[Rfam]
RNA sequence: AAACACCGCGUCCGGCAACGUUUAGCGAACAGCCGGUACCAAGCAUUGAAUCUGAAGCCGCGAGGCCAAGAUUAAGCGUAUGCAUGGGAGCGUAAGAGCCGCAAUGCGGAAGCGUGAAGCGAUAGAGCCUCGUUAUAAUAAGAAGCGGAAGCCGAUGUGCUUCAGUCUACAGCAGGCAGCAAUGCGUAUUCGUAAUCGCGAGAAUACGCAGGUUCCGCCGGGGUCAAAGAGCG
Numbered sequence: 001a002a003a004c005a006c007c008g009c010g011u012c013c014g015g016c017a018a019c020g021u022u023u024a025g026c027g028a029a030c031a032g033c034c035g036g037u038a039c040c041a042a043g044c045a046u047u048g049a050a051u052c053u054g055a056a057g058c059c060g061c062g063a064g065g066c067c068a069a070g071a072u073u074a075a076g077c078g079u080a081u082g083c084a085u086g087g088g089a090g091c092g093u094a095a096g097a098g099c100c101g102c103a104a105u106g107c108g109g110a111a112g113c114g115u116g117a118a119g120c121g122a123u124a125g126a127g128c129c130u131c132g133u134u135a136u137a138a139u140a141a142g143a144a145g146c147g148g149a150a151g152c153c154g155a156u157g158u159g160c161u162u163c164a165g166u167c168u169a170c171a172g173c174a175g176g177c178a179g180c181a182a183u184g185c186g187u188a189u190u191c192g193u194a195a196u197c198g199c200g201a202g203a204a205u206a207c208g209c210a211g212g213u214u215c216c217g218c219c220g221g222g223g224u225c226a227a228a229g230a231g232c233g
Stems, first nucleotide, its partner, number of pairs: 012036005020030003023201001025199002039087003043083004047078002049073005057066003125225001127224006145218006151177003156171004183210009
Rfam assigns this 233-nucleotide RNA sequence to the family "Group II catalytic intron D1-D4-6". Rfam's curators put it in the seed alignment. The base pairs follow the family's consensus structure. Rfam links the family to the GO term Group II intron splicing.